[Rfam]
The record is an 84-nucleotide sequence, which matches "Glycine riboswitch aptamer" in Rfam.
The literature on the family includes a 2004 paper in Science by Mandal et al., "A glycine-dependent riboswitch that uses cooperative binding to control gene expression".
Gene Ontology term of the family: glycine biosynthetic process.
Nucleotides: 084
Stems, first nucleotide, its partner, number of pairs: 007078007020030003032064003035060002039058003045052002
Number, partner (000 for none) and nucleotide at each position: 001000g002000a003000a004000g005000c006000c007078a008077u009076c010075a011074c012073a013072g014000g015000a016000g017000a018000g019000g020030c021029c022028g023000c024000a025000u026000c027000u028022c029021g030020g031000c032064g033063c034062c035060g036059a037000a038000g039058g040057a041056g042000c043000a044000a045052c046051c047000c048000c049000c050000c051046g052045g053000a054000a055000c056041c057040u058039c059036u060035c061000a062034g063033g064032c065000a066000a067000a068000a069000g070000g071000a072013c073012u074011g075010u076009g077008a078007u079000c080000g081000g082000c083000g084000c